[Rfam]
RNA sequence: GGGCCCGUGGCCUAGAAGGAUAAGGCGGCGGCCUCCUAAGCCACCAGCUGCGGCGAAGAGAGCCGCAGAUCGUGGGUUCGAGUCCCACCGGGCCCG
Numbered sequence: 001g002g003g004c005c006c007g008u009g010g011c012c013u014a015g016a017a018g019g020a021u022a023a024g025g026c027g028g029c030g031g032c033c034u035c036c037u038a039a040g041c042c043a044c045c046a047g048c049u050g051c052g053g054c055g056a057a058g059a060g061a062g063c064c065g066c067a068g069a070u071c072g073u074g075g076g077u078u079c080g081a082g083u084c085c086c087a088c089c090g091g092g093c094c095c096g
Stems, first nucleotide, its partner, number of pairs: 001095007010026004028066005072088005